The family of this 58-nucleotide sequence is "pemK RNA". By type it is a cis-regulatory element. The sequence is in the family's curated seed alignment.
[Rfam]
RNA sequence: AUAAUGAUACUUCCGUAAGCGGCUGGCGGAGAACCCGGCAGAGGUGAAAUCCCUAUGA
Numbered sequence: 001a002u003a004a005u006g007a008u009a010c011u012u013c014c015g016u017a018a019g020c021g022g023c024u025g026g027c028g029g030a031g032a033a034c035c036c037g038g039c040a041g042a043g044g045u046g047a048a049a050u051c052c053c054u055a056u057g058a
Stems, first nucleotide, its partner, number of pairs: 012055001013022003023041003027037003042054003